RNA sequence: UGCGUAUUUCGCGGCGGCGGAGCUCGACCGCCGAUCGAAGACAUGAUCGCGUUCAUCGACGCUCACCGCGGGCUCUACGGGGUCGAGCCGAUCUGCCGGCAACUGCCGAUCGCCCCG
Numbered sequence: 001u002g003c004g005u006a007u008u009u010c011g012c013g014g015c016g017g018c019g020g021a022g023c024u025c026g027a028c029c030g031c032c033g034a035u036c037g038a039a040g041a042c043a044u045g046a047u048c049g050c051g052u053u054c055a056u057c058g059a060c061g062c063u064c065a066c067c068g069c070g071g072g073c074u075c076u077a078c079g080g081g082g083u084c085g086a087g088c089c090g091a092u093c094u095g096c097c098g099g100c101a102a103c104u105g106c107c108g109a110u111c112g113c114c115c116c117g
Base pairs, nucleotide, nucleotide: 016032017031018030019029020028078117079116080115081114082113089112090111092109093108095106096105098103
Dot-bracket structure: ...............(((((.......))))).............................................(((((......((.((.((.(....).)).)).)))))))